[Rfam]
RNA: msiK RNA
Organism: Curtobacterium sp. MCBD17_040
RNA sequence: GGUCACCGUUCCUCACUACGGAUCGUCCGGCACGUACCUGCCGGUGAAGGAGCAAGAAC
Numbered sequence: 001g002g003u004c005a006c007c008g009u010u011c012c013u014c015a016c017u018a019c020g021g022a023u024c025g026u027c028c029g030g031c032a033c034g035u036a037c038c039u040g041c042c043g044g045u046g047a048a049g050g051a052g053c054a055a056g057a058a059c
Stems, first nucleotide, its partner, number of pairs: 009051003013047003027044006